The record is a 54-nucleotide RNA from Conger conger, which matches "UnaL2 LINE 3' element" in Rfam.
It scores 58 bits against the family's covariance model.

RNA sequence: AGCAGCUUUGGUUGUACGUCGCUCUGGAUAAGAGCGUCUGCCAAAUGCCAAUAA
Numbered sequence: 001a002g003c004a005g006c007u008u009u010g011g012u013u014g015u016a017c018g019u020c021g022c023u024c025u026g027g028a029u030a031a032g033a034g035c036g037u038c039u040g041c042c043a044a045a046u047g048c049c050a051a052u053a054a
Base pairs, nucleotide, nucleotide: 013043014041015040016039020036021035022034023033024032025031